A member of the RNA family "mir-92 microRNA precursor family" from Neodrepanis coruscans, 78 nucleotides long. The family is grouped with related families in Rfam's "mir-92 microRNA precursor clan". About the family: This family represents the microRNA precursor mir-92. Gene Ontology terms of the family: RISC complex and miRNA-mediated post-transcriptional gene silencing. A reference for the family is Mourelatos et al. (2002), "miRNPs: a novel class of ribonucleoproteins containing numerous microRNAs", Genes Dev. The source organism's lineage runs through Eukaryota, Sarcopterygii, Dipnotetrapodomorpha, Dinosauria and Neodrepanis.

RNA sequence: CUUUCUACACAGGUUGGAACCACUUGUAGUGUCGUGUGUCUCUCUGGUACUACCGUUGUUCCAACCUGUGGAGAUUGG
Numbered sequence: 001c002u003u004u005c006u007a008c009a010c011a012g013g014u015u016g017g018a019a020c021c022a023c024u025u026g027u028a029g030u031g032u033c034g035u036g037u038g039u040c041u042c043u044c045u046g047g048u049a050c051u052a053c054c055g056u057u058g059u060u061c062c063a064a065c066c067u068g069u070g071g072a073g074a075u076u077g078g
Stems, first nucleotide, its partner, number of pairs: 004074003009069006016062005022056002026053009